[Rfam]
RNA sequence: CGACCGCUAUAGCAAUAUAGCCGAGGCCAGACGGACAGCCGGGUCGAAUGCCGA
Numbered sequence: 001c002g003a004c005c006g007c008u009a010u011a012g013c014a015a016u017a018u019a020g021c022c023g024a025g026g027c028c029a030g031a032c033g034g035a036c037a038g039c040c041g042g043g044u045c046g047a048a049u050g051c052c053g054a
Base pairs, nucleotide, nucleotide: 001046002045003044004043005042006021007020008019009018010017011016